[Rfam]
RNA sequence: CGAGCCGACCGGGCGGCCGCGGUACCGGGGUUCGCUCCGGAUCGAGGAACGUCCGGGCUCCACAGAGCAGGGCGGUGGCUAACGGCCACCCGGGGUGACCCGCGGGAACAGUGCCACAGAGAGUAGACAGCCGACGGGGCUACCCGCCGGUGAUGGUGAAAGGGUGGGGUAAGAGCCCACCAGCGCCCCGGGUGACUGGGGCGGCUAGGCAAACCCCGCCCGGAGCAAGACCGCACAGCUGACGCUUGAGGGCUGCUCGUCCGAGUCAGCGGGUAGGUCGCGUGAGCCCACCGGUAACGGUGGGCCAAGAUGGAUGGUCGCCACCGUCGCACCGGUAACGGGCGGCGGCAACAGAACCCGGCGUACAGGUCGGCUCGUUCC
Numbered sequence: 001c002g003a004g005c006c007g008a009c010c011g012g013g014c015g016g017c018c019g020c021g022g023u024a025c026c027g028g029g030g031u032u033c034g035c036u037c038c039g040g041a042u043c044g045a046g047g048a049a050c051g052u053c054c055g056g057g058c059u060c061c062a063c064a065g066a067g068c069a070g071g072g073c074g075g076u077g078g079c080u081a082a083c084g085g086c087c088a089c090c091c092g093g094g095g096u097g098a099c100c101c102g103c104g105g106g107a108a109c110a111g112u113g114c115c116a117c118a119g120a121g122a123g124u125a126g127a128c129a130g131c132c133g134a135c136g137g138g139g140c141u142a143c144c145c146g147c148c149g150g151u152g153a154u155g156g157u158g159a160a161a162g163g164g165u166g167g168g169g170u171a172a173g174a175g176c177c178c179a180c181c182a183g184c185g186c187c188c189c190g191g192g193u194g195a196c197u198g199g200g201g202c203g204g205c206u207a208g209g210c211a212a213a214c215c216c217c218g219c220c221c222g223g224a225g226c227a228a229g230a231c232c233g234c235a236c237a238g239c240u241g242a243c244g245c246u247u248g249a250g251g252g253c254u255g256c257u258c259g260u261c262c263g264a265g266u267c268a269g270c271g272g273g274u275a276g277g278u279c280g281c282g283u284g285a286g287c288c289c290a291c292c293g294g295u296a297a298c299g300g301u302g303g304g305c306c307a308a309g310a311u312g313g314a315u316g317g318u319c320g321c322c323a324c325c326g327u328c329g330c331a332c333c334g335g336u337a338a339c340g341g342g343c344g345g346c347g348g349c350a351a352c353a354g355a356a357c358c359c360g361g362c363g364u365a366c367a368g369g370u371c372g373g374c375u376c377g378u379u380c381c
Base pairs, nucleotide, nucleotide: 001377002376003375004374005373006372007371008370009369010368011366012322013321014320015319016318017317018316020044021043022042023041025040026039027038028037029036049364050363051362053361054360055359056358057357058225059224060223061222065258066257067256068255070221071220072219073218074217075089076088077087078086079085090104091102092101093100094099105216106215111214112213113210114209115208128155129154130151131150132149133148135146136145137144138143163181164180165179166178167177168176183205184203185202186201187200188199189198190197191196229279230278231277232276238270239269240268241267242266243265250262251261252260253259286305287304288303289302290301291300292299293298
Dot-bracket structure: ((((((((((((((((((.((((.(((((......)))))))))....[[[.[[[[[((((...[[[[.((((((((((.....)))))(((((....)))).)((....(((((............((((((.((((....)))).))))..)).......((((((.......)))))).(((((((((....)))))))).)..)))..)))))))))))))...((((.....((((((......((((.]]]]))))..)))))).....))))......((((((((....))))))))..........)))))))..................................]]]]]]]].).))))))))))....

Bacterial RNase P class A: a 381-nucleotide RNA sequence from Actinomyces respiraculi. The organism belongs to Actinomyces, within Bacteria. Pairs were carried over by alignment from the consensus structure, which is taken from published work. The literature on the family includes a 2013 paper in RNA Biol by Beauregard et al., "Identification and characterization of small RNAs in Yersinia pestis".